Shown here is a 600-nucleotide part of an RNA from an uncultured archaeon, a member of the family "Archaeal small subunit ribosomal RNA". The family's consensus secondary structure is taken from published work. Rfam links the family to the GO terms structural constituent of ribosome and ribosome. The family has 86 seed sequences and 709 matches in Rfam 15.1. The family is grouped with related families in Rfam's "SSU clan". The sequence is in the family's curated seed alignment.

RNA sequence: UGGCGGGGGAGCACCACAACGGGUGGAGCCUGCGGUUCAAUUGGAUUCAACGCCGGAAAACUCACCGGAGGCGACAGCAAGAUGAAAGUCAGGCUGAAGACCUUACUGGAUUAGCUGAGAGGUGGCGCAUGGCCGUCGACAGUUCGUGUCGUGAAACAUCCUGUUAAGUCAGGCAACGGGCGAGACCCGCGCUCACAGUUGCCAGCAUCUCCGUAAGGAGGAUGGGAACUCUGUGAGGACUGCCGCCGCUAAGGUGGAGGAAGAAGCGGGCCACGGUAGGUCAGUAUGCCCCGAAUCCUCCGGGCUACACGCGUGCUACAAUGGAUAGUACAAUGAGUAUCGACCCCGAAAGGGGAAGGUAAACCCCUAAAACUAUCCUUAGUUGGGAUCGAGGGCUGCAACUCGCCCUCGUGAACCUGGAAUCCGUAGUAAUCGCAUCUCAAAAUGGUGCGGUGAAUAUGUCCCUGCUCCUUGCACACACCGCCCGUCAAGCCAGCCGAGUGGGAUUUAGGUGAGGUCAUGUUUUUUGGCAUGUUCGAACCUAAGUCUCGUAAGGGGGGCUAAGUCGUAACAAGGUAGCCGUAGAGGAAUCUGCGGCUG
Numbered sequence: 001u002g003g004c005g006g007g008g009g010a011g012c013a014c015c016a017c018a019a020c021g022g023g024u025g026g027a028g029c030c031u032g033c034g035g036u037u038c039a040a041u042u043g044g045a046u047u048c049a050a051c052g053c054c055g056g057a058a059a060a061c062u063c064a065c066c067g068g069a070g071g072c073g074a075c076a077g078c079a080a081g082a083u084g085a086a087a088g089u090c091a092g093g094c095u096g097a098a099g100a101c102c103u104u105a106c107u108g109g110a111u112u113a114g115c116u117g118a119g120a121g122g123u124g125g126c127g128c129a130u131g132g133c134c135g136u137c138g139a140c141a142g143u144u145c146g147u148g149u150c151g152u153g154a155a156a157c158a159u160c161c162u163g164u165u166a167a168g169u170c171a172g173g174c175a176a177c178g179g180g181c182g183a184g185a186c187c188c189g190c191g192c193u194c195a196c197a198g199u200u201g202c203c204a205g206c207a208u209c210u211c212c213g214u215a216a217g218g219a220g221g222a223u224g225g226g227a228a229c230u231c232u233g234u235g236a237g238g239a240c241u242g243c244c245g246c247c248g249c250u251a252a253g254g255u256g257g258a259g260g261a262a263g264a265a266g267c268g269g270g271c272c273a274c275g276g277u278a279g280g281u282c283a284g285u286a287u288g289c290c291c292c293g294a295a296u297c298c299u300c301c302g303g304g305c306u307a308c309a310c311g312c313g314u315g316c317u318a319c320a321a322u323g324g325a326u327a328g329u330a331c332a333a334u335g336a337g338u339a340u341c342g343a344c345c346c347c348g349a350a351a352g353g354g355g356a357a358g359g360u361a362a363a364c365c366c367c368u369a370a371a372a373c374u375a376u377c378c379u380u381a382g383u384u385g386g387g388a389u390c391g392a393g394g395g396c397u398g399c400a401a402c403u404c405g406c407c408c409u410c411g412u413g414a415a416c417c418u419g420g421a422a423u424c425c426g427u428a429g430u431a432a433u434c435g436c437a438u439c440u441c442a443a444a445a446u447g448g449u450g451c452g453g454u455g456a457a458u459a460u461g462u463c464c465c466u467g468c469u470c471c472u473u474g475c476a477c478a479c480a481c482c483g484c485c486c487g488u489c490a491a492g493c494c495a496g497c498c499g500a501g502u503g504g505g506a507u508u509u510a511g512g513u514g515a516g517g518u519c520a521u522g523u524u525u526u527u528u529g530g531c532a533u534g535u536u537c538g539a540a541c542c543u544a545a546g547u548c549u550c551g552u553a554a555g556g557g558g559g560g561c562u563a564a565g566u567c568g569u570a571a572c573a574a575g576g577u578a579g580c581c582g583u584a585g586a587g588g589a590a591u592c593u594g595c596g597g598c599u600g
Stems, first nucleotide, its partner, number of pairs: 001478002003475003007472007016462002020426005025319001027317003031313004035308002041056004065303007075117004079112002087107003091103003121292002124290004130286002132281003135277004142181006148157002160173004187269004192237007202226002206224003209220004240260002243257005323378007335366001337364001340359002344355004385416001390411007432454008481575001483572001486568002489565001491562004497556002501552013516537002519534006577600010